RNA sequence: AUAUAUGUAACGCUUAAUCACUUUGAACGGGAGAACCAUUUUUUGGGGUGAAUCUUAUUACACGAUAAUAAGUAGGGUUAAUUUUCUUCAAUCCGAAUCCGUCAGCUAAUCUCGUAAGCGUAGAAGAGAAGUUUU
Numbered sequence: 001a002u003a004u005a006u007g008u009a010a011c012g013c014u015u016a017a018u019c020a021c022u023u024u025g026a027a028c029g030g031g032a033g034a035a036c037c038a039u040u041u042u043u044u045g046g047g048g049u050g051a052a053u054c055u056u057a058u059u060a061c062a063c064g065a066u067a068a069u070a071a072g073u074a075g076g077g078u079u080a081a082u083u084u085u086c087u088u089c090a091a092u093c094c095g096a097a098u099c100c101g102u103c104a105g106c107u108a109a110u111c112u113c114g115u116a117a118g119c120g121u122a123g124a125a126g127a128g129a130a131g132u133u134u135u
Stems, first nucleotide, its partner, number of pairs: 011120004018026003027115006037045002046100003054072006075094004